The record is a 30-nucleotide sequence, which matches "L19-Flavobacteria ribosomal protein leader" in Rfam. It is one of the family's seed sequences. Rfam classes the family as a cis-regulatory leader.

[Rfam]
RNA sequence: UAACCUCUGACGAAGAAAUCGUGAAUGUUA
Numbered sequence: 001u002a003a004c005c006u007c008u009g010a011c012g013a014a015g016a017a018a019u020c021g022u023g024a025a026u027g028u029u030a
Base pairs, nucleotide, nucleotide: 001030002029003028004027008025010022011021012020013019